[Rfam]
RNA sequence: ACUAUGAAGUGUACUAGGACCUGUGAGUAGAUAUGAUUUCGGUCAAAUCCAAAGCAUACACGAAUGAUAUAGUAA
Numbered sequence: 001a002c003u004a005u006g007a008a009g010u011g012u013a014c015u016a017g018g019a020c021c022u023g024u025g026a027g028u029a030g031a032u033a034u035g036a037u038u039u040c041g042g043u044c045a046a047a048u049c050c051a052a053a054g055c056a057u058a059c060a061c062g063a064a065u066g067a068u069a070u071a072g073u074a075a
Stems, first nucleotide, its partner, number of pairs: 001073005009061005022056003030049003034045002
Dot-bracket structure: (((((...(((((........(((.....(((.((........)).)))....)))))))).......)))))..
RNA: RAGATH-18 RNA